[Rfam]
RNA: Flavo-1 RNA
RNA sequence: CCCUAGCCCUGAUAGUAGUGGAAAUCCUUUUUUGAGGCUUUUCGCCGAAAAAAAGAUUGUAACGGAUAGCAGGAAAUAGC
Numbered sequence: 001c002c003c004u005a006g007c008c009c010u011g012a013u014a015g016u017a018g019u020g021g022a023a024a025u026c027c028u029u030u031u032u033u034g035a036g037g038c039u040u041u042u043c044g045c046c047g048a049a050a051a052a053a054a055g056a057u058u059g060u061a062a063c064g065g066a067u068a069g070c071a072g073g074a075a076a077u078a079g080c
Stems, first nucleotide, its partner, number of pairs: 009072003013068002018063002023058004029053005036046003